[Rfam]
RNA sequence: AUAUAAGUAAAAGUUUACUUUUUAGAUUCAUUGUAGAGUUGAUGUAUCUAGACAACAUUGUAGUCUAGAUACAUCAACUCUACAAUGACUCUAAAAAGUAAACUUUUUCUUAUAU
Numbered sequence: 001a002u003a004u005a006a007g008u009a010a011a012a013g014u015u016u017a018c019u020u021u022u023u024a025g026a027u028u029c030a031u032u033g034u035a036g037a038g039u040u041g042a043u044g045u046a047u048c049u050a051g052a053c054a055a056c057a058u059u060g061u062a063g064u065c066u067a068g069a070u071a072c073a074u075c076a077a078c079u080c081u082a083c084a085a086u087g088a089c090u091c092u093a094a095a096a097a098g099u100a101a102a103c104u105u106u107u108u109c110u111u112a113u114a115u
Base pairs, nucleotide, nucleotide: 002114003113004112005111006110007109009107010106011105012104013103015101016100017099018098019097020096021095022094023093024092025091028088029087030086031085032084033083034082035081036080037079038078039077040076041075042074043073044072049067050066051065052064
Dot-bracket structure: .((((((.(((((.(((((((((((..(((((((((((((((((....((((...........))))....)))))))))))))))))..))))))))))).))))).)))))).
A member of the RNA family "MIR2593 microRNA precursor family" from Trifolium medium, 115 nucleotides long.
Taxonomically the source falls in Trifolium (Eukaryota, Tracheophyta, Magnoliopsida, rosids).